[Rfam]
RNA: L17 ribosomal protein downstream element
Organism: Streptococcus pantholopis
RNA sequence: UGAGUGUUAUGAUGAUGGAUUUAUAAGAAAGAUAAAUCUUAGUCUAGCUCUGGUCUACCGCUGGGUUUUCCCUGGCGG
Dot-bracket structure: .((((.....(((...((((((((.......))))))))..)))..)))).......((((((((.....))))))))